Overview: The record is a 449-nucleotide part of an RNA from Salinarchaeum sp. Harcht-Bsk1, which matches "Archaeal large subunit ribosomal RNA" in Rfam. Rfam 15.1 lists 2,955 matches to the family in 1,139 species. The source organism's lineage runs through Archaea, Methanobacteriati, Halobacteria, Halobacteriales and Salinarchaeum.
[Rfam]
RNA sequence: CCAAUCGAAACAUGUCGAAGCAUGACCGUUACCGAGGUAGUCCGUGGGGUAGAGACACUGAUUGGCGGCCCGGACCCCGAGAGGGGUCUGACCGCCUGUCAAACUCCGAACCUACGGACGCUGUCGACGUAGCGAGUCCGGUGUGCGGGGUAAGCCUGUGCACCAUGAGGGAGACAACCCAGAGUCGGGUUAAGGUCCCCAAGUGUGGGUUAAGUGCGAUCGAAGGUGGUCCCGAGCCACAGACAGCCGGGAGGUGAGCUUAGAAGCAGCUACCCUCUAAGAAAAGCGUAACAGCUUACCGGCCGAGGUUCGGGGCGCCCAAAAUGAUCGGGGCUCAAACCCACCACCGAUACCUGACCGUGCCUGUCACAAGGCAACCGUGUAGAUUGGCGCUCCGAUCGGGUGGAAGCUCGGGAUAGAUCUCGAGUGGACCGAUCGGUGACGAAAAU
Numbered sequence: 001c002c003a004a005u006c007g008a009a010a011c012a013u014g015u016c017g018a019a020g021c022a023u024g025a026c027c028g029u030u031a032c033c034g035a036g037g038u039a040g041u042c043c044g045u046g047g048g049g050u051a052g053a054g055a056c057a058c059u060g061a062u063u064g065g066c067g068g069c070c071c072g073g074a075c076c077c078c079g080a081g082a083g084g085g086g087u088c089u090g091a092c093c094g095c096c097u098g099u100c101a102a103a104c105u106c107c108g109a110a111c112c113u114a115c116g117g118a119c120g121c122u123g124u125c126g127a128c129g130u131a132g133c134g135a136g137u138c139c140g141g142u143g144u145g146c147g148g149g150g151u152a153a154g155c156c157u158g159u160g161c162a163c164c165a166u167g168a169g170g171g172a173g174a175c176a177a178c179c180c181a182g183a184g185u186c187g188g189g190u191u192a193a194g195g196u197c198c199c200c201a202a203g204u205g206u207g208g209g210u211u212a213a214g215u216g217c218g219a220u221c222g223a224a225g226g227u228g229g230u231c232c233c234g235a236g237c238c239a240c241a242g243a244c245a246g247c248c249g250g251g252a253g254g255u256g257a258g259c260u261u262a263g264a265a266g267c268a269g270c271u272a273c274c275c276u277c278u279a280a281g282a283a284a285a286g287c288g289u290a291a292c293a294g295c296u297u298a299c300c301g302g303c304c305g306a307g308g309u310u311c312g313g314g315g316c317g318c319c320c321a322a323a324a325u326g327a328u329c330g331g332g333g334c335u336c337a338a339a340c341c342c343a344c345c346a347c348c349g350a351u352a353c354c355u356g357a358c359c360g361u362g363c364c365u366g367u368c369a370c371a372a373g374g375c376a377a378c379c380g381u382g383u384a385g386a387u388u389g390g391c392g393c394u395c396c397g398a399u400c401g402g403g404u405g406g407a408a409g410c411u412c413g414g415g416a417u418a419g420a421u422c423u424c425g426a427g428u429g430g431a432c433c434g435a436u437c438g439g440u441g442a443c444g445a446a447a448a449u
Base pairs, nucleotide, nucleotide: 001390002389003388004387005386006385011024012023013022014021015020026136027134028133029132030131031130032129036122037121038120040119041118042117043116044115045114046113047112052107053105054104060100061099062098064096065095066094067093068092073088074087075086076085077084078083140164141163142162143161144160145159146158147157148156169180170179171178184358185357186356187355188354189353190352194348195347196346203345205344206343207342208341209340210339225319226318227317229316230315231314232313233312234311235310236309237308238307246303247302248301249300250299252276253275254274257271258270259269277281282297286295287294359380360379361376362375363374364373365372391444393441395439396438397437398436399435400434401433402432409428410427411426412425413424414423415422416421